[Rfam]
RNA sequence: AACAAUUUGUCCCGCGUCCCAGGAAGUUUUAAAACAGUCCCGAAAAAUCAAUCGGGACUGUUUUAAAACUUCCUGGGUCGCGGGACAAAUUGUUAA
Numbered sequence: 001a002a003c004a005a006u007u008u009g010u011c012c013c014g015c016g017u018c019c020c021a022g023g024a025a026g027u028u029u030u031a032a033a034a035c036a037g038u039c040c041c042g043a044a045a046a047a048u049c050a051a052u053c054g055g056g057a058c059u060g061u062u063u064u065a066a067a068a069c070u071u072c073c074u075g076g077g078u079c080g081c082g083g084g085a086c087a088a089a090u091u092g093u094u095a096a
Base pairs, nucleotide, nucleotide: 001094002093003092004091005090006089007088008087009086010085011084012083013082014081015080016079018077019076020075021074022073023072024071025070026069027068028067029066030065031064032063033062034061035060036059037058
Dot-bracket structure: ((((((((((((((((.((((((((((((((((((((....................)))))))))))))))))))).))))))))))))))))..

Rfam assigns this 96-nucleotide RNA sequence from Pipistrellus kuhlii to the family "mir-9261 microRNA precursor family". Lineage of the source: Eukaryota > Deuterostomia > Dipnotetrapodomorpha > Eutheria > Pipistrellus. A search with the family's covariance model found it, with a score of 86 bits.